[Rfam]
RNA sequence: UCCCCCCCCCCCCCCCCCCCCCCCCCCUUUUUUUUUUUUUAAAUAAAAGAAAAAAAGGGGGGGGGGGGGGGGGGGGGGGGGGG
Numbered sequence: 001u002c003c004c005c006c007c008c009c010c011c012c013c014c015c016c017c018c019c020c021c022c023c024c025c026c027c028u029u030u031u032u033u034u035u036u037u038u039u040u041a042a043a044u045a046a047a048a049g050a051a052a053a054a055a056a057g058g059g060g061g062g063g064g065g066g067g068g069g070g071g072g073g074g075g076g077g078g079g080g081g082g083g
Base pairs, nucleotide, nucleotide: 002082003081004080005079006078007077008076009075010074011073012072013071014070015069016068017067018066019065020064021063022062023061024060025059026058027057028056029055030054031053032052033051034050
Rfam assigns this 83-nucleotide RNA sequence from Pieris brassicae to the family "mir-4433 microRNA precursor family". Taxonomically the source falls in Pieris (Eukaryota, Protostomia, Ditrysia, Pieridae). It scores 79 bits against the family's covariance model. Gene Ontology terms of the family: miRNA-mediated post-transcriptional gene silencing and RISC complex. Rfam 15.1 lists 36 matches to the family in 18 species. The family's consensus secondary structure was predicted with RNAalifold.